The family of this 308-nucleotide RNA from Dicrurus megarhynchus is "Metazoan signal recognition particle RNA". The family is grouped with related families in Rfam's "SRP clan". From the family's description: The signal recognition particle (SRP) is a universally conserved ribonucleoprotein. By type it is a non-coding RNA gene. Rfam links the family to the GO terms SRP-dependent cotranslational protein targeting to membrane, signal sequence recognition and signal recognition particle, endoplasmic reticulum targeting. For this family Rfam cites "Structural and energetic analysis of RNA recognition by a universally conserved protein from the signal recognition particle" (Batey et al., J Mol Biol, 2001). A search with the family's covariance model found it, with a score of 143 bits.
RNA sequence: GCCGGGCGCGGUGGCGUGCGCCUGUAAUCCUAGCUGUAGGGGAGGCUGAGCCCGACGGAUCCCUUGAGCCCGGGAGUUCUGGGCUGCUGUGAGCUGUGGCGAGUGGGCAUCUGCGCUAACGCCGCUAUCGAGACGGUGACCCGCUUGGGGGUACGGGUACACCAGGUUUAUAUAUAAGGAGGGGUGAAUCGGCCCAAAUUUGGAGACGGAGCAGGUCGAAGCUCCCAUGAAGGCGGUCAGCAGCGGGAUCGCGCCUGUGAAUAACCAUUGCAGCGUAGCCUGGGCAACACAGAGACACGCGGGCUCAC
Numbered sequence: 001g002c003c004g005g006g007c008g009c010g011g012u013g014g015c016g017u018g019c020g021c022c023u024g025u026a027a028u029c030c031u032a033g034c035u036g037u038a039g040g041g042g043a044g045g046c047u048g049a050g051c052c053c054g055a056c057g058g059a060u061c062c063c064u065u066g067a068g069c070c071c072g073g074g075a076g077u078u079c080u081g082g083g084c085u086g087c088u089g090u091g092a093g094c095u096g097u098g099g100c101g102a103g104u105g106g107g108c109a110u111c112u113g114c115g116c117u118a119a120c121g122c123c124g125c126u127a128u129c130g131a132g133a134c135g136g137u138g139a140c141c142c143g144c145u146u147g148g149g150g151g152u153a154c155g156g157g158u159a160c161a162c163c164a165g166g167u168u169u170a171u172a173u174a175u176a177a178g179g180a181g182g183g184g185u186g187a188a189u190c191g192g193c194c195c196a197a198a199u200u201u202g203g204a205g206a207c208g209g210a211g212c213a214g215g216u217c218g219a220a221g222c223u224c225c226c227a228u229g230a231a232g233g234c235g236g237u238c239a240g241c242a243g244c245g246g247g248a249u250c251g252c253g254c255c256u257g258u259g260a261a262u263a264a265c266c267a268u269u270g271c272a273g274c275g276u277a278g279c280c281u282g283g284g285c286a287a288c289a290c291a292g293a294g295a296c297a298c299g300c301g302g303g304c305u306c307a308c
Stems, first nucleotide, its partner, number of pairs: 001046003004023007028043003048306007060295002063292002068285007079278003083274005089268003093265001095263003103258006110251001111247002114245004121237005126229003130169003134165001135163004139158005146151001173179001181225005190218005200209003